[Rfam]
Nucleotides: 193
Base pairs, nucleotide, nucleotide: 007027008026009025011023012022013021049068050067051066052065053064054063070086071085072084073083074082075081115146116145117144118143119142120141121140122139126137127136128135129134149186150185151184152183153182154181156178157177158176159175160174161173
Number, partner (000 for none) and nucleotide at each position: 001000a002000u003000c004000g005000c006000u007027u008026c009025u010000c011023g012022g013021c014000u015000g016000a017000a018000a019000a020000c021013g022012c023011c024000a025009a026008g027007a028000u029000c030000a031000a032000a033000g034000u035000g036000u037000a038000g039000u040000a041000u042000c043000u044000g045000u046000u047000c048000u049068u050067a051066u052065c053064a054063g055000c056000u057000u058000a059000a060000c061000c062000u063054c064053u065052g066051g067050u068049a069000a070086a071085u072084g073083a074082c075081c076000c077000a078000c079000g080000u081075g082074g083073u084072c085071a086070u087000u088000a089000u090000a091000a092000g093000g094000u095000u096000a097000a098000u099000a100000u101000u102000a103000u104000u105000u106000u107000u108000g109000g110000a111000a112000a113000a114000u115146g116145g117144u118143c119142g120141u121140u122139g123000a124000a125000u126137g127136a128135a129134g130000c131000u132000u133000g134129c135128u136127u137126c138000a139122u140121g141120g142119c143118g144117a145116c146115c147000a148000c149186g150185g151184g152183u153182c154181g155000a156178a157177u158176u159175g160174g161173c162000g163000u164000u165000g166000c167000a168000g169000u170000a171000c172000u173161g174160c175159c176158a177157a178156u179000a180000a181154u182153g183152g184151c185150c186149c187000a188000u189000u190000c191000c192000c193000c
U2 spliceosomal RNA: a 193-nucleotide sequence from Soboliphyme baturini. U2 is a small nuclear RNA (snRNA) component of the spliceosome (involved in pre-mRNA splicing). Complementary binding between U2 snRNA (in an area lying towards the 5' end but 3' to hairpin I) and the branchpoint sequence (BPS) of the intron results the bulging out of an unpaired adenosine, on the BPS, which initiates a nucleophilic attack at the intronic 5' splice site, thus starting the first of two transesterification reactions that mediate splicing. The family's RNA type in Rfam is spliceosomal small nuclear RNA. NCBI's taxonomy places the organism under Eukaryota, Bilateria, Nematoda, Dioctophymatoidea, Soboliphyme.